A member of the RNA family "Plastid-psbA-4 3UTR RNA" from Simmondsia chinensis, 63 nucleotides long. Rfam classes the family as a cis-regulatory element. Plastid psbA-4 is a non-coding RNA (ncRNA) present in plastids. The sequence is in the family's curated seed alignment.
[Rfam]
RNA sequence: ACAGUAGAGGAGCAAUAACUAAUUUCUUGUUCUGUCAAGGAAACCGGUAUUGCUCCUUUACUA
Numbered sequence: 001a002c003a004g005u006a007g008a009g010g011a012g013c014a015a016u017a018a019c020u021a022a023u024u025u026c027u028u029g030u031u032c033u034g035u036c037a038a039g040g041a042a043a044c045c046g047g048u049a050u051u052g053c054u055c056c057u058u059u060a061c062u063a
Base pairs, nucleotide, nucleotide: 006059007058008057009056010055011054012053013052014051015050016049017048024041025040026039027038028037029036